[Rfam]
RNA sequence: AGAGGCAGAGAAGGCAAGAUGUCGGCAUAGCCGAGGUAUUUGAUACGGCUGUACCACAUCUAGCCACUCCUGGCUUCU
Numbered sequence: 001a002g003a004g005g006c007a008g009a010g011a012a013g014g015c016a017a018g019a020u021g022u023c024g025g026c027a028u029a030g031c032c033g034a035g036g037u038a039u040u041u042g043a044u045a046c047g048g049c050u051g052u053a054c055c056a057c058a059u060c061u062a063g064c065c066a067c068u069c070c071u072g073g074c075u076u077c078u
Base pairs, nucleotide, nucleotide: 006072007071008070010068013065014064015063017061018060019059020058021057024055025054027052028051029050030049031048
Rfam assigns this 78-nucleotide RNA from Ladona fulva to the family "mir-31 microRNA precursor family". Lineage of the source: Eukaryota > Opisthokonta > Ecdysozoa > Odonata > Ladona. The match comes from Rfam's covariance-model search (54 bits). A reference for the family is Chiang et al. (2010), "Mammalian microRNAs: experimental evaluation of novel and previously annotated genes", Genes Dev. Pairs were carried over by alignment from the consensus structure, which was predicted with RNAalifold.